About this RNA:
Shown here is an 87-nucleotide sequence from Dipodomys ordii, a member of the family "mir-146 microRNA precursor family". On this family, see Cai et al., Proc Natl Acad Sci U S A 2005: "Kaposi's sarcoma-associated herpesvirus expresses an array of viral microRNAs in latently infected cells". Its family is annotated with RISC complex and miRNA-mediated post-transcriptional gene silencing in the Gene Ontology. Rfam 15.1 lists 1,617 matches to the family in 642 species. NCBI's taxonomy places the organism under Eukaryota, Deuterostomia, Sarcopterygii, Boreoeutheria, Dipodomys. The base pairs follow the family's consensus structure, which was predicted with WAR.

[Rfam]
RNA sequence: UUGUAUCCCCAGCUUUGAGAACUGAAUUCCAUGGGUCGUGUCAACGUCAGACGCGUGCAGUUCAGUUCUUCAGCUGGGAUAUCUCAG
Numbered sequence: 001u002u003g004u005a006u007c008c009c010c011a012g013c014u015u016u017g018a019g020a021a022c023u024g025a026a027u028u029c030c031a032u033g034g035g036u037c038g039u040g041u042c043a044a045c046g047u048c049a050g051a052c053g054c055g056u057g058c059a060g061u062u063c064a065g066u067u068c069u070u071c072a073g074c075u076g077g078g079a080u081a082u083c084u085c086a087g
Stems, first nucleotide, its partner, number of pairs: 008078002011075003018069008033054001035052002